[Rfam]
RNA sequence: GCGAUGAGCUAAUUUGUGUAAGUCGAAGGAUAUGCUUUUGCUAAACGUAUGAAUGUGGUCAUACGGUCCUCGCCUCAAAACGCAUCAAAGACGCCCAAUUGGGCGUCU
Numbered sequence: 001g002c003g004a005u006g007a008g009c010u011a012a013u014u015u016g017u018g019u020a021a022g023u024c025g026a027a028g029g030a031u032a033u034g035c036u037u038u039u040g041c042u043a044a045a046c047g048u049a050u051g052a053a054u055g056u057g058g059u060c061a062u063a064c065g066g067u068c069c070u071c072g073c074c075u076c077a078a079a080a081c082g083c084a085u086c087a088a089a090g091a092c093g094c095c096c097a098a099u100u101g102g103g104c105g106u107c108u
Base pairs, nucleotide, nucleotide: 014078015077016076018074024072025071026070028069029068030067031066034041035040046065047064049062050061051060089108090107091106092105093104094103095102096101
BsrF: a 108-nucleotide RNA from Priestia veravalensis. The organism belongs to Priestia, within Bacteria. It scores 91 bits against the family's covariance model. It is annotated as a small RNA. The literature on the family includes a 2008 paper in Gene by Saito et al., "Novel small RNA-encoding genes in the intergenic regions of Bacillus subtilis".